[Rfam]
Nucleotides: 236
Base pairs, nucleotide, nucleotide: 020114021113022112023111024110025109026108027107029105123154124153125152126151127150132143133142134141135140155175156174157173158172159171160170180226181225182224183223184222185221186220194211195210196209197208198207199206200205
Number, partner (000 for none) and nucleotide at each position: 001000u002000u003000c004000g005000u006000u007000u008000g009000a010000a011000a012000a013000g014000c015000g016000c017000c018000a019000g020114g021113a022112c023111u024110a025109u026108u027107u028000c029105u030000g031000c032000u033000u034000a035000g036000g037000g038000a039000a040000c041000a042000g043000g044000g045000a046000u047000u048000g049000u050000a051000u052000u053000u054000u055000u056000u057000u058000a059000u060000u061000g062000g063000a064000g065000u066000a067000c068000a069000c070000u071000a072000a073000g074000a075000a076000a077000a078000a079000u080000c081000a082000g083000g084000u085000a086000u087000a088000a089000u090000c091000c092000u093000u094000a095000u096000c097000c098000u099000u100000a101000g102000g103000g104000a105029g106000g107027a108026a109025a110024u111023a112022g113021u114020u115000g116000a117000c118000g119000a120000g121000g122000a123154g124153g125152a126151g127150g128000u129000u130000c131000a132143u133142c134141g135140a136000g137000a138000u139000u140135u141134c142133g143132g144000c145000g146000g147000a148000u149000g150127c151126c152125u153124c154123c155175c156174g157173g158172u159171u160170g161000c162000c163000a164000u165000c166000a167000u168000c169000u170160c171159a172158a173157c174156c175155g176000u177000a178000c179000g180226u181225u182224u183223u184222a185221a186220a187000c188000g189000a190000a191000a192000a193000a194211c195210a196209a197208a198207g199206a200205g201000g202000u203000g204000a205200c206199u207198c208197u209196u210195u211194g212000c213000a214000c215000a216000a217000a218000c219000g220186u221185u222184u223183a224182a225181a226180a227000c228000a229000a230000g231000a232000u233000g234000a235000g236000c
Shown here is a 236-nucleotide RNA sequence from Virgibacillus sp. MSP4-1, a member of the family "glmS glucosamine-6-phosphate activated ribozyme aptamer". Lineage of the source: Bacteria > Bacillota > Bacilli > Caryophanales > Virgibacillus. A reference for the family is Winkler et al. (2004), "Control of gene expression by a natural metabolite-responsive ribozyme", Nature. The family's RNA type in Rfam is riboswitch.